[Rfam]
The family of this 71-nucleotide RNA sequence is "Xanthine riboswitch aptamer (NMT1 RNA)". The literature on the family includes a 2020 paper in RNA by Yu and Breaker, "A bacterial riboswitch class senses xanthine and uric acid to regulate genes associated with purine oxidation". The sequence is in the family's curated seed alignment.
RNA sequence: UUCGAGAGUAGAAGCGUUCAGCGCAAUCGUCCGGCAGCUGCCGGUGCGGUUGGCGGGUCAUUGCUCUUGAA
Numbered sequence: 001u002u003c004g005a006g007a008g009u010a011g012a013a014g015c016g017u018u019c020a021g022c023g024c025a026a027u028c029g030u031c032c033g034g035c036a037g038c039u040g041c042c043g044g045u046g047c048g049g050u051u052g053g054c055g056g057g058u059c060a061u062u063g064c065u066c067u068u069g070a071a
Stems, first nucleotide, its partner, number of pairs: 005067006015056001019057001021054002024052007